[Rfam]
RNA sequence: ACGUUGGUCAUUACAAUACAACUUGAUAACUGUUGUAGCACUUACCAUGUUGUAUUGCAAUAGUCUGUUUG
Number, nucleotide and partner (000 for none) at each position: 001a000002c000003g000004u000005u000006g000007g000008u000009c000010a000011u000012u000013a000014c057015a056016a055017u054018a053019c052020a051021a050022c000023u000024u047025g046026a000027u044028a043029a042030c000031u040032g039033u038034u000035g000036u000037a000038g033039c032040a031041c000042u029043u028044a027045c000046c025047a024048u000049g000050u021051u020052g019053u018054a017055u016056u015057g014058c000059a000060a000061u000062a000063g000064u000065c000066u000067g000068u000069u000070u000071g000